A member of the RNA family "SmY spliceosomal RNA" from Caenorhabditis latens, 78 nucleotides long.
The family's RNA type in Rfam is spliceosomal small nuclear RNA.
It scores 43 bits against the family's covariance model.
Lineage of the source: Eukaryota > Nematoda > Rhabditida > Rhabditoidea > Caenorhabditis.
A reference for the family is Deng et al. (2006), "Organization of the Caenorhabditis elegans small non-coding transcriptome: genomic features, biogenesis, and expression", Genome Res.
RNA sequence: UUCUUCUCUGCAAUACCUUCCAGGCCUUUUCAAAGACCUCCAGUACAAUUUGGGACACUCUGUUUUUUUAGAAGGGUG
Dot-bracket structure: .....................(((.(((....))).))).................(((((.(((....)))))))).
Numbered sequence: 001u002u003c004u005u006c007u008c009u010g011c012a013a014u015a016c017c018u019u020c021c022a023g024g025c026c027u028u029u030u031c032a033a034a035g036a037c038c039u040c041c042a043g044u045a046c047a048a049u050u051u052g053g054g055a056c057a058c059u060c061u062g063u064u065u066u067u068u069u070a071g072a073a074g075g076g077u078g
Stems, first nucleotide, its partner, number of pairs: 022039003026035003057077005063072003